[Rfam]
RNA sequence: GAGUGUUAGAGCGCUUUUAGAAUUUGUCUAGCAGGUUUUUCAGUUUUCACCAGAAACUUCCCCA
Dot-bracket structure: .................................((.((((..((....))..))))...))...